[Rfam]
RNA sequence: GGACCAAUAACGCCCUCUUGAUAGAACAAGAAAGGGGUUAUUGCUCCUUUUC
Number, nucleotide and partner (000 for none) at each position: 001g047002g046003a045004c000005c043006a042007a041008u040009a039010a038011c037012g000013c000014c000015c000016u031017c030018u029019u028020g027021a000022u000023a000024g000025a000026a000027c020028a019029a018030g017031a016032a000033a000034g000035g000036g000037g011038u010039u009040a008041u007042u006043g005044c000045u003046c002047c001048u000049u000050u000051u000052c000